Rfam assigns this 72-nucleotide RNA from Nakaseomyces glabratus to the family "tRNA". The family's consensus secondary structure is taken from published work.
RNA sequence: GGGGUUAUAGUUAAAUUGGUAGAACAAUUGUGUUGCAUGCAAUAGAUAUGAGUUCAAUUCUCAUUAACUCCA
Numbered sequence: 001g002g003g004g005u006u007a008u009a010g011u012u013a014a015a016u017u018g019g020u021a022g023a024a025c026a027a028u029u030g031u032g033u034u035g036c037a038u039g040c041a042a043u044a045g046a047u048a049u050g051a052g053u054u055c056a057a058u059u060c061u062c063a064u065u066a067a068c069u070c071c072a
Stems, first nucleotide, its partner, number of pairs: 001071007010025003027043005048064005

Rfam's curators put it in the seed alignment. The organism belongs to Nakaseomyces, within Eukaryota. Rfam classes the family as a transfer RNA.